[Rfam]
RNA: Purine riboswitch aptamer
Organism: Paenibacillus darwinianus
RNA sequence: UUUCAACAAGCAAAUAGCGAUCGUAUAACCUCACGAAACAGGGUGGGGGUUUCUACGGGAAGCCUUAACUUCCUAACUACGAAUAGCGGAUCAUUCACA
Numbered sequence: 001u002u003u004c005a006a007c008a009a010g011c012a013a014a015u016a017g018c019g020a021u022c023g024u025a026u027a028a029c030c031u032c033a034c035g036a037a038a039c040a041g042g043g044u045g046g047g048g049g050u051u052u053c054u055a056c057g058g059g060a061a062g063c064c065u066u067a068a069c070u071u072c073c074u075a076a077c078u079a080c081g082a083a084u085a086g087c088g089g090a091u092c093a094u095u096c097a098c099a
Stems, first nucleotide, its partner, number of pairs: 019084001021082005029048006057074006